[Rfam]
Shown here is a 100-nucleotide sequence from Halapricum salinum, a member of the family "L4-Archaeoglobi ribosomal protein leades". The literature on the family includes a 2020 paper in BMC Microbiol by Eckert and Weinberg, "Discovery of 20 novel ribosomal leader candidates in bacteria and archaea".
RNA sequence: CUGAUGGGCGCGUUCGGGUCAAUUGCGGCAUGCAACACCCGAUCUCUCUCGGUGUGCCUCCUUCCAUGGAGGUCGCCGAGGGGGAGCGCGUUGCCGUCAG
Numbered sequence: 001c002u003g004a005u006g007g008g009c010g011c012g013u014u015c016g017g018g019u020c021a022a023u024u025g026c027g028g029c030a031u032g033c034a035a036c037a038c039c040c041g042a043u044c045u046c047u048c049u050c051g052g053u054g055u056g057c058c059u060c061c062u063u064c065c066a067u068g069g070a071g072g073u074c075g076c077c078g079a080g081g082g083g084g085a086g087c088g089c090g091u092u093g094c095c096g097u098c099a100g
Stems, first nucleotide, its partner, number of pairs: 001100005008091006015041004023035005043085011